The record is a 64-nucleotide sequence from Eragrostis curvula, which matches "Small nucleolar RNA Z105" in Rfam.
It is annotated as a C/D-box small nucleolar RNA.
For this family Rfam cites "The high diversity of snoRNAs in plants: identification and comparative study of 120 snoRNA genes from Oryza sativa" (Chen et al., Nucleic Acids Res, 2003).
NCBI's taxonomy places the organism under Eukaryota, Liliopsida, Poaceae, Eragrostidinae, Eragrostis.
Gene Ontology terms of the family: RNA processing and nucleolus.

[Rfam]
RNA sequence: CUGGCAUAAUGAGGAAAACAAUUUUCUCUGAACUUUGAUGAGAAAUACCUCCUACUCAUUCUGA
Numbered sequence: 001c002u003g004g005c006a007u008a009a010u011g012a013g014g015a016a017a018a019c020a021a022u023u024u025u026c027u028c029u030g031a032a033c034u035u036u037g038a039u040g041a042g043a044a045a046u047a048c049c050u051c052c053u054a055c056u057c058a059u060u061c062u063g064a
Stems, first nucleotide, its partner, number of pairs: 006059002009056001025043002028037001